Source information:
The record is a 119-nucleotide RNA from Tribolium castaneum, which matches "U5 spliceosomal RNA" in Rfam. The literature on the family includes a 1996 paper in J Biol Chem by Hinz et al., "Domain analysis of human U5 RNA. Cap trimethylation, protein binding, and spliceosome assembly". The sequence is in the family's curated seed alignment. Taxonomically the source falls in Tribolium (Eukaryota, Opisthokonta, Hexapoda, Pterygota).
[Rfam]
RNA sequence: UCACUCUGGUUUCCCUUCAGUGCGAAUAAAUCUUUCGCCUUUUACUAAAGAUUUCCGUGGAGGGGAACAAUUCAAAUGAGUCUAUGAAAAUUUCUUGAUUGCCCGGCGAAAGCUGGGCG
Numbered sequence: 001u002c003a004c005u006c007u008g009g010u011u012u013c014c015c016u017u018c019a020g021u022g023c024g025a026a027u028a029a030a031u032c033u034u035u036c037g038c039c040u041u042u043u044a045c046u047a048a049a050g051a052u053u054u055c056c057g058u059g060g061a062g063g064g065g066a067a068c069a070a071u072u073c074a075a076a077u078g079a080g081u082c083u084a085u086g087a088a089a090a091u092u093u094c095u096u097g098a099u100u101g102c103c104c105g106g107c108g109a110a111a112g113c114u115g116g117g118c119g
Base pairs, nucleotide, nucleotide: 003081004080005079006078009068010067011066012065013064014063015062016061017060018059019058028054029053030052031051032050033049034048035047099119101118102117103116104115105114106113